A member of the RNA family "traJ-II RNA" from Xylella fastidiosa, 103 nucleotides long.
RNA sequence: GGGCAGGAUAUGUGAAGUAGGCCCACCGGAAAUCCGGUGUUCCUUCUUCACUUUCCCUUAUUCGCACCUUCGGUACUCAACGGGAAUCCUGCUCUGCGAGGCU
Numbered sequence: 001g002g003g004c005a006g007g008a009u010a011u012g013u014g015a016a017g018u019a020g021g022c023c024c025a026c027c028g029g030a031a032a033u034c035c036g037g038u039g040u041u042c043c044u045u046c047u048u049c050a051c052u053u054u055c056c057c058u059u060a061u062u063c064g065c066a067c068c069u070u071c072g073g074u075a076c077u078c079a080a081c082g083g084g085a086a087u088c089c090u091g092c093u094c095u096g097c098g099a100g101g102c103u
Stems, first nucleotide, its partner, number of pairs: 001094009012051006019044003024039006054085004064076001066074003